The family of this 78-nucleotide RNA sequence from Parnassius apollo is "Mammalian CPEB3 ribozyme".
Lineage of the source: Eukaryota > Bilateria > Amphiesmenoptera > Heteroneura > Parnassius.
The mammalian CPEB3 ribozyme is a self cleaving RNA located in the second intron of the CPEB3 gene which belongs to a family of genes regulating messenger RNA polyadenylation.
[Rfam]
RNA sequence: UGUACAUAUCUUGGGGGUCAUUGUAGAAGCGUACUCGUAGCGACCCCUGCCAGCCCUUUUCAGGGCUGCAAUUCUACA
Number, nucleotide and partner (000 for none) at each position: 001u000002g000003u000004a000005c000006a000007u000008a000009u000010c000011u000012u000013g000014g047015g046016g045017g044018u043019c042020a000021u000022u078023g077024u076025a075026g074027a073028a072029g041030c040031g000032u000033a000034c000035u000036c000037g000038u000039a000040g030041c029042g019043a018044c017045c016046c015047c014048u000049g000050c000051c068052a067053g066054c065055c064056c063057u062058u000059u000060u000061c000062a057063g056064g055065g054066c053067u052068g051069c000070a000071a000072u028073u027074c026075u025076a024077c023078a022